[Rfam]
RNA: mir-9242 microRNA precursor family
Organism: Myotis davidii
RNA sequence: GGCCUCCCUCUGCGGGGUGAUAGAUCAUGGGGCUCUGUGAUUGAUUGCUCCAUAGAGGGAGGCC
Number, nucleotide and partner (000 for none) at each position: 001g064002g063003c062004c061005u060006c059007c058008c057009u056010c055011u054012g053013c000014g051015g050016g049017g048018u047019g046020a045021u044022a000023g042024a041025u040026c039027a038028u037029g036030g035031g000032g000033c000034u000035c030036u029037g028038u027039g026040a025041u024042u023043g000044a021045u020046u019047g018048c017049u016050c015051c014052a000053u012054a011055g010056a009057g008058g007059g006060a005061g004062g003063c002064c001